[Rfam]
RNA: c-di-GMP-I riboswitch aptamer
Organism: Alicyclobacillus sp. SO9
RNA sequence: AGAUAGAACGAGCAAACACACCGAAAGGUAUGGACGCAAAGCCACGGGUCUACAGGUAUCACUGCCCAGGACAGCCGGGUUGCUCCC
Numbered sequence: 001a002g003a004u005a006g007a008a009c010g011a012g013c014a015a016a017c018a019c020a021c022c023g024a025a026a027g028g029u030a031u032g033g034a035c036g037c038a039a040a041g042c043c044a045c046g047g048g049u050c051u052a053c054a055g056g057u058a059u060c061a062c063u064g065c066c067c068a069g070g071a072c073a074g075c076c077g078g079g080u081u082g083c084u085c086c087c
Base pairs, nucleotide, nucleotide: 012037013036017032018031020029021028022027040081041080042079043078045077046076047075048072049071050070055066056065057064058063